[Rfam]
RNA sequence: GCAUGGCAAUGGAUUUAUGUCAGGGUCUGUGAAGUGACUCCGUCAUAGUGUACCCCAUGCAAUAGCAAUCCGUGUCUCCGAACCAUUGGCAGGUCUGUUCCCAUAGAUCUGAUCACUGAAGUGAGUCGCACAAGA
Numbered sequence: 001g002c003a004u005g006g007c008a009a010u011g012g013a014u015u016u017a018u019g020u021c022a023g024g025g026u027c028u029g030u031g032a033a034g035u036g037a038c039u040c041c042g043u044c045a046u047a048g049u050g051u052a053c054c055c056c057a058u059g060c061a062a063u064a065g066c067a068a069u070c071c072g073u074g075u076c077u078c079c080g081a082a083c084c085a086u087u088g089g090c091a092g093g094u095c096u097g098u099u100c101c102c103a104u105a106g107a108u109c110u111g112a113u114c115a116c117u118g119a120a121g122u123g124a125g126u127c128g129c130a131c132a133a134g135a
Stems, first nucleotide, its partner, number of pairs: 001060004005055002015048005023040002026036001073128002076125003084118002089113001091110006
RNA: Small nucleolar RNA SNORA42/SNORA80 family